[Rfam]
RNA sequence: UGAGGUGGAGGUCACAGCAGACGCACUCUCAGUGUGGCUAUGUCAGGUUCCAGUGAAUCUGCAGAUUCUGCU
Numbered sequence: 001u002g003a004g005g006u007g008g009a010g011g012u013c014a015c016a017g018c019a020g021a022c023g024c025a026c027u028c029u030c031a032g033u034g035u036g037g038c039u040a041u042g043u044c045a046g047g048u049u050c051c052a053g054u055g056a057a058u059c060u061g062c063a064g065a066u067u068c069u070g071c072u
Stems, first nucleotide, its partner, number of pairs: 010039004016072006023035003044061007
Background
This 72-nucleotide RNA sequence from Crocodylus porosus belongs to the Rfam family "Mammalian CPEB3 ribozyme". About the family: The mammalian CPEB3 ribozyme is a self cleaving RNA located in the second intron of the CPEB3 gene which belongs to a family of genes regulating messenger RNA polyadenylation.